The record is a 98-nucleotide RNA from Microbacterium sp. ABRD28, which matches "Glycine riboswitch aptamer" in Rfam.
Taxonomically the source falls in Microbacterium (Bacteria, Bacillati, Actinomycetes, Micrococcales).
About the family: This family represents the bacterial glycine riboswitch.
The match comes from Rfam's covariance-model search (63 bits).
Gene Ontology term of the family: glycine biosynthetic process.
RNA sequence: AUGACACGGACGGGAGAGCUUCGGCGCCGACGGCGCCGAACACCGAAGGAGCAAGCCUCCCCGCCAAUCUCUCAGGUACCGCGUACCGUCCGUGCCGG
Numbered sequence: 001a002u003g004a005c006a007c008g009g010a011c012g013g014g015a016g017a018g019c020u021u022c023g024g025c026g027c028c029g030a031c032g033g034c035g036c037c038g039a040a041c042a043c044c045g046a047a048g049g050a051g052c053a054a055g056c057c058u059c060c061c062c063g064c065c066a067a068u069c070u071c072u073c074a075g076g077u078a079c080c081g082c083g084u085a086c087c088g089u090c091c092g093u094g095c096c097g098g
Base pairs, nucleotide, nucleotide: 006093007092008091009090010089011088012087013086020040021039022038023037024036025035042077043076044075045073046072049071050070051069055064056063